[Rfam]
RNA: Small nucleolar RNA SNORD30
RNA sequence: GUGUGUGAUGACUUAUACGGAGUUACAUUUGGCUGAUGAGUUGCUGUUGAGACUUGGAAAUCUGAUUUGU
Numbered sequence: 001g002u003g004u005g006u007g008a009u010g011a012c013u014u015a016u017a018c019g020g021a022g023u024u025a026c027a028u029u030u031g032g033c034u035g036a037u038g039a040g041u042u043g044c045u046g047u048u049g050a051g052a053c054u055u056g057g058a059a060a061u062c063u064g065a066u067u068u069g070u
Stems, first nucleotide, its partner, number of pairs: 023052002026049002030046004